[Rfam]
RNA sequence: AAGACCUUUAAAAUAGUCCAGUGAGACUGUUAAGGGAUAAUGAGGGCAUCUAUGGUGGCUACAUGUGUACAUAAUUUUGGGAGAGUACUCCAGUAUUAUGUAUACUUUGGAUAAGUUUGCUAAUAUUCCUGUCUCACUGAGAUAGGAAUUUUUUAU
Number, nucleotide and partner (000 for none) at each position: 001a000002a000003g000004a000005c035006c034007u033008u032009u000010a000011a000012a000013a030014u029015a028016g027017u026018c025019c000020a000021g000022u000023g000024a000025g018026a017027c016028u015029g014030u013031u000032a008033a007034g006035g005036g000037a000038u000039a000040a000041u000042g000043a000044g000045g000046g000047c000048a000049u000050c000051u000052a000053u000054g000055g000056u000057g000058g000059c000060u000061a000062c000063a000064u000065g000066u000067g000068u000069a101070c100071a099072u098073a097074a096075u095076u000077u093078u092079g091080g090081g089082a000083g000084a000085g000086u000087a000088c000089u081090c080091c079092a078093g077094u000095a075096u074097u073098a072099u071100g070101u069102a000103u000104a000105c000106u000107u000108u000109g000110g000111a000112u000113a000114a000115g000116u000117u000118u000119g000120c000121u000122a000123a151124u000125a149126u148127u147128c146129c145130u144131g143132u142133c141134u140135c139136a000137c000138u000139g135140a134141g133142a132143u131144a130145g129146g128147a127148a126149u125150u000151u123152u000153u000154u000155a000156u000